[Rfam]
RNA sequence: GAUGGAUUGAAUCCAAUCCAUUAACAAGUCUUUUUUACUUGGUAGAUGAAUUGGAUGAAUAUUCGG
Numbered sequence: 001g002a003u004g005g006a007u008u009g010a011a012u013c014c015a016a017u018c019c020a021u022u023a024a025c026a027a028g029u030c031u032u033u034u035u036u037a038c039u040u041g042g043u044a045g046a047u048g049a050a051u052u053g054g055a056u057g058a059a060u061a062u063u064c065g066g
Stems, first nucleotide, its partner, number of pairs: 004062001006060003011056007019048004025041005

Rfam assigns this 66-nucleotide RNA from Trifolium medium to the family "MIR5291 microRNA precursor family". Gene Ontology terms of the family: miRNA-mediated post-transcriptional gene silencing and RISC complex. The family has 3 seed sequences and 168 matches in Rfam 15.1. Taxonomically the source falls in Trifolium (Eukaryota, Euphyllophyta, fabids, Papilionoideae).